The family of this 208-nucleotide RNA from Ectocarpus siliculosus is "MIR8622 microRNA precursor family". Gene Ontology terms of the family: miRNA-mediated post-transcriptional gene silencing and RISC complex. Lineage of the source: Eukaryota > Sar > Ochrophyta > Ectocarpaceae > Ectocarpus.
Nucleotides: 208
Base pairs, nucleotide, nucleotide: 001208002207003206004205005204006203007202008201009200010199012197013196014195015194016193017192018191019190020189021188022187023186024185025184026183027182028181029180030179031178032177033176035174036173037172038171039170040169041168043166044165045164046163047162048161049160050159051158052157053156056153057152058151059150060149061148063146064145065144066143069140070139072137074135075134076133077132078131079130080129084128085127086126091121092120093119094118095117096116097115098114099113101111
Number, partner (000 for none) and nucleotide at each position: 001208c002207c003206g004205a005204a006203a007202u008201c009200u010199g011000c012197g013196c014195c015194g016193g017192a018191a019190c020189c021188a022187a023186g024185c025184g026183g027182c028181a029180u030179c031178c032177a033176a034000c035174a036173u037172u038171a039170g040169u041168c042000a043166c044165a045164g046163c047162c048161a049160u050159g051158c052157u053156c054000g055000a056153c057152g058151c059150c060149a061148c062000c063146g064145a065144c066143c067000c068000c069140a070139a071000u072137c073000u074135c075134c076133u077132g078131a079130a080129c081000u082000a083000c084128g085127g086126g087000u088000u089000u090000a091121c092120a093119g094118c095117a096116g097115u098114a099113g100000c101111u102000g103000a104000u105000g106000c107000c108000a109000c110000u111101a112000c113099c114098u115097a116096c117095u118094g119093c120092u121091g122000a123000c124000a125000c126086c127085c128084c129080g130079u131078u132077c133076a134075g135074g136000g137072g138000u139070u140069u141000a142000c143066g144065g145064u146063c147000c148061g149060u150059g151058g152057c153056g154000g155000u156053g157052a158051g159050c160049a161048u162047g163046g164045c165044u166043g167000u168041g169040a170039c171038u172037a173036a174035u175000g176033u177032u178031g179030g180029a181028u182027g183026c184025c185024g186023c187022u188021u189020g190019g191018u192017u193016c194015c195014g196013g197012c198000c199010c200009a201008g202007a203006u204005u205004u206003c207002g208001g